[Rfam]
RNA sequence: GGCCAGGGGGAAAGAAACACUAUAUGUUAAAGCAUCUAGUAUGGGCAAGCAGGGAGCUGGAAAGAUUCGCACUCAACCCUGGCC
Numbered sequence: 001g002g003c004c005a006g007g008g009g010g011a012a013a014g015a016a017a018c019a020c021u022a023u024a025u026g027u028u029a030a031a032g033c034a035u036c037u038a039g040u041a042u043g044g045g046c047a048a049g050c051a052g053g054g055a056g057c058u059g060g061a062a063a064g065a066u067u068c069g070c071a072c073u074c075a076a077c078c079c080u081g082g083c084c
Base pairs, nucleotide, nucleotide: 001084002083003082004081005080006079007078008077
Shown here is an 84-nucleotide RNA from Lentivirus humimdef1, a member of the family "HIV gag stem loop 3 (GSL3)". Rfam's curators write: This family consists of several HIV gag stem loop 3 (GSL3) sequences. The source organism's lineage runs through Viruses, Pararnavirae, Artverviricota, Retroviridae and Lentivirus humimdef1. The base pairs follow the family's consensus structure, which was predicted with PFOLD. Rfam's curators put it in the seed alignment. The family's RNA type in Rfam is cis-regulatory element.